[Rfam]
Notes:
This 120-nucleotide sequence from Zingiber officinale belongs to the Rfam family "Small nucleolar RNA Z278". Gene Ontology terms of the family: RNA processing and nucleolus. A reference for the family is Chen et al. (2003), "The high diversity of snoRNAs in plants: identification and comparative study of 120 snoRNA genes from Oryza sativa", Nucleic Acids Res. Rfam classes the family as a C/D-box small nucleolar RNA.

RNA sequence: GCCUAUGAUGAUUUCUCCAAUCGUUCGAGGCGUAGAUAGCCCCAAGUUCCCUUUUCUACAGGGAGAACCUACUUGGAGCGGCUGCUACGAUCAGAUGAAAUUCCCGGACACUCCUGAGCC
Numbered sequence: 001g002c003c004u005a006u007g008a009u010g011a012u013u014u015c016u017c018c019a020a021u022c023g024u025u026c027g028a029g030g031c032g033u034a035g036a037u038a039g040c041c042c043c044a045a046g047u048u049c050c051c052u053u054u055u056c057u058a059c060a061g062g063g064a065g066a067a068c069c070u071a072c073u074u075g076g077a078g079c080g081g082c083u084g085c086u087a088c089g090a091u092c093a094g095a096u097g098a099a100a101u102u103c104c105c106g107g108a109c110a111c112u113c114c115u116g117a118g119c120c
Stems, first nucleotide, its partner, number of pairs: 001120001003118001049063004